[Rfam]
RNA sequence: UGGUAGAUGCACCCUGAUAACUCACUCCCUUAGUAGCUUUAUUGUUGCUAAGGGUUUUUUUA
Numbered sequence: 001u002g003g004u005a006g007a008u009g010c011a012c013c014c015u016g017a018u019a020a021c022u023c024a025c026u027c028c029c030u031u032a033g034u035a036g037c038u039u040u041a042u043u044g045u046u047g048c049u050a051a052g053g054g055u056u057u058u059u060u061u062a
Base pairs, nucleotide, nucleotide: 002013003012004011027054028053029052030051031050032049033048034047035046036045037044
Rfam assigns this 62-nucleotide RNA sequence from Calothrix sp. C42_A2020_038 to the family "Nitrogen stress-induced RNA 1". The base pairs follow the family's consensus structure. On this family, see Ionescu et al., J Mol Biol 2010: "Heterocyst-specific transcription of NsiR1, a non-coding RNA encoded in a tandem array of direct repeats in cyanobacteria".